[Rfam]
This 182-nucleotide RNA sequence from Vitreoscilla sp. C1 belongs to the Rfam family "6S / SsrS RNA". The base pairs follow the family's consensus structure, which is taken from published work. Rfam's curators write: E. coli 6S RNA was the first non coding RNA to be sequenced, but its function was unknown until recently. It consists of 184 nucleotides that fold into an extended hairpin structure with a large single-stranded internal bulge. The 6S RNA specifically associates with RNA polymerase holoenzyme containing the sigma70 specificity factor.
RNA sequence: UUUCCCCUGCAGUGUUCGAACGGGCUUAUAUUCCUUUGAACCAAUAAGUUCGCUUUAUAGUUGCACCGUGGUGUAUGGGCGCGAACGUUCCUUAGUCGAACGUACCCGAAAUAUACCCAUGUGACUAGCCUUGUCCCCAAGGUUCAAGCGAAUUGUGCCUAACCGACACAGGCGGGGGAUCC
Numbered sequence: 001u002u003u004c005c006c007c008u009g010c011a012g013u014g015u016u017c018g019a020a021c022g023g024g025c026u027u028a029u030a031u032u033c034c035u036u037u038g039a040a041c042c043a044a045u046a047a048g049u050u051c052g053c054u055u056u057a058u059a060g061u062u063g064c065a066c067c068g069u070g071g072u073g074u075a076u077g078g079g080c081g082c083g084a085a086c087g088u089u090c091c092u093u094a095g096u097c098g099a100a101c102g103u104a105c106c107c108g109a110a111a112u113a114u115a116c117c118c119a120u121g122u123g124a125c126u127a128g129c130c131u132u133g134u135c136c137c138c139a140a141g142g143u144u145c146a147a148g149c150g151a152a153u154u155g156u157g158c159c160u161a162a163c164c165g166a167c168a169c170a171g172g173c174g175g176g177g178g179a180u181c182c
Base pairs, nucleotide, nucleotide: 003179004178005177006176007175008174009173010172012169013168014167015166017165018164032151033150035148037146038145039144040143041142042141060125061124062123063122064121065120070117071116072115073114074113075112081106086102087101088100089099090098